[Rfam]
RNA: Small nucleolar RNA Z159/U59
RNA sequence: GUCUCUGAUGAUGAUUAAAAAUGAUUAACUUUCGUUCUUCUGAUGCGCUUUUCUCAUGGCGCGCUGCGGAAGCAAUCUGGAGACCUGAACUGAGGAGAC
Numbered sequence: 001g002u003c004u005c006u007g008a009u010g011a012u013g014a015u016u017a018a019a020a021a022u023g024a025u026u027a028a029c030u031u032u033c034g035u036u037c038u039u040c041u042g043a044u045g046c047g048c049u050u051u052u053c054u055c056a057u058g059g060c061g062c063g064c065u066g067c068g069g070a071a072g073c074a075a076u077c078u079g080g081a082g083a084c085c086u087g088a089a090c091u092g093a094g095g096a097g098a099c
Stems, first nucleotide, its partner, number of pairs: 003097004